RNA sequence: AAGAAUAAUUAAGCGCCAGGGCCUUAGAGGUGUGAAAGUUUAAGGUCGACGAGGAAGAGGGUUAUCGAACGUUUCGGCGGAUCCCUCUCGGUGGCUUGUCACCGUAAAGCUUGCUUAAAACCGAGGAGUAAUUUUCGGGACAAUGAGUAAGCUGGCAAGACAA
Number, nucleotide and partner (000 for none) at each position: 001a000002a000003g000004a000005a000006u000007a000008a000009u000010u000011a000012a000013g000014c000015g000016c000017c000018a000019g000020g047021g046022c045023c044024u043025u042026a041027g040028a000029g000030g000031u000032g000033u000034g000035a000036a000037a000038g000039u000040u027041u026042a025043a024044g023045g022046u021047c020048g000049a000050c000051g000052a000053g000054g000055a000056a088057g087058a086059g085060g084061g000062u000063u000064a000065u077066c076067g075068a074069a000070c000071g000072u000073u000074u068075c067076g066077g065078c000079g000080g000081a000082u000083c000084c060085c059086u058087c057088u056089c104090g103091g102092u101093g100094g000095c000096u000097u000098g000099u000100c093101a092102c091103c090104g089105u000106a000107a000108a153109g152110c151111u150112u149113g148114c147115u000116u000117a000118a000119a000120a000121c138122c137123g136124a135125g134126g133127a132128g000129u000130a000131a000132u127133u126134u125135u124136c123137g122138g121139g000140a000141c000142a000143a000144u000145g000146a000147g114148u113149a112150a111151g110152c109153u108154g000155g000156c000157a000158a000159g000160a000161c000162a000163a000
glmS glucosamine-6-phosphate activated ribozyme aptamer: a 163-nucleotide RNA sequence from Desulfosporosinus sp. Tol-M. This entry contains a glucosamine-6-phosphate activated ribozyme that is found in the mRNA for GlmS. GlmS is an enzyme that uses fructose-6-phosphate and glutamine to generate glucosamine-6-phosphate. The organism belongs to Desulfosporosinus, within Bacteria. On this family, see Jansen et al., Nat Struct Mol Biol 2006: "Backbone and nucleobase contacts to glucosamine-6-phosphate in the glmS ribozyme". The family's RNA type in Rfam is riboswitch. The family's consensus secondary structure is taken from published work. A search with the family's covariance model found it, with a score of 104 bits.